[Rfam]
RNA sequence: UAUCGAUCAGUUGGCAAGAUGUCGGCAUAGCUGAUAUUUUUAAUUUUCAAAGCCCGCUAUGCUGCAUCUAGUCAAUUAUUUCAAU
Numbered sequence: 001u002a003u004c005g006a007u008c009a010g011u012u013g014g015c016a017a018g019a020u021g022u023c024g025g026c027a028u029a030g031c032u033g034a035u036a037u038u039u040u041u042a043a044u045u046u047u048c049a050a051a052g053c054c055c056g057c058u059a060u061g062c063u064g065c066a067u068c069u070a071g072u073c074a075a076u077u078a079u080u081u082c083a084a085u
Stems, first nucleotide, its partner, number of pairs: 005081002009077007017069005023064009
The record is an 85-nucleotide RNA sequence from Lucilia cuprina, which matches "mir-31 microRNA precursor family" in Rfam. A reference for the family is Aravin et al. (2003), "The small RNA profile during Drosophila melanogaster development", Dev Cell. The family's consensus secondary structure was predicted with RNAalifold. Its Rfam clan is "mir-31 microRNA precursor family".